[Rfam]
RNA sequence: GGCGUCCGCCUCGUGGACGCCGGUGCCCAUCCAAGCCGACUCCCGGUUACUCUGGCGCCGUGCGGCAACCCCCGCCUGCCCGGGAAGCCGCAUAGCCGACAGCCGUCGCAUCCCAGGGAGCCCCUACAUG
Numbered sequence: 001g002g003c004g005u006c007c008g009c010c011u012c013g014u015g016g017a018c019g020c021c022g023g024u025g026c027c028c029a030u031c032c033a034a035g036c037c038g039a040c041u042c043c044c045g046g047u048u049a050c051u052c053u054g055g056c057g058c059c060g061u062g063c064g065g066c067a068a069c070c071c072c073c074g075c076c077u078g079c080c081c082g083g084g085a086a087g088c089c090g091c092a093u094a095g096c097c098g099a100c101a102g103c104c105g106u107c108g109c110a111u112c113c114c115a116g117g118g119a120g121c122c123c124c125u126a127c128a129u130g
Stems, first nucleotide, its partner, number of pairs: 061092004072084002095109002098107003
RNA: Streptomyces-metH RNA